[Rfam]
RNA sequence: AACUUCCUGUAUAAGCACUGUGCUAAAAUCGCAGAAACUAGGACCAUAUCUUGGUUUUUGUGAUAAUGCUAGCAGAGUACACAGAAGAAUAAACAUAACAGCAUUGGAUUGUAAAGACUAGGGUGAGGCCAGGUGCAGUGGCUCACAUCUGUAAUCCCAGCACUUUGGGA
Numbered sequence: 001a002a003c004u005u006c007c008u009g010u011a012u013a014a015g016c017a018c019u020g021u022g023c024u025a026a027a028a029u030c031g032c033a034g035a036a037a038c039u040a041g042g043a044c045c046a047u048a049u050c051u052u053g054g055u056u057u058u059u060g061u062g063a064u065a066a067u068g069c070u071a072g073c074a075g076a077g078u079a080c081a082c083a084g085a086a087g088a089a090u091a092a093a094c095a096u097a098a099c100a101g102c103a104u105u106g107g108a109u110u111g112u113a114a115a116g117a118c119u120a121g122g123g124u125g126a127g128g129c130c131a132g133g134u135g136c137a138g139u140g141g142c143u144c145a146c147a148u149c150u151g152u153a154a155u156c157c158c159a160g161c162a163c164u165u166u167g168g169g170a
Stems, first nucleotide, its partner, number of pairs: 018077002021074005028067002031064001034058002037055007100164002104160004122139001124137002127134001
A member of the RNA family "Small nucleolar RNA SNORA81" from Nomascus leucogenys, 170 nucleotides long. It scores 112 bits against the family's covariance model. Gene Ontology terms of the family: nucleolus and RNA processing. By type it is an H/ACA-box small nucleolar RNA.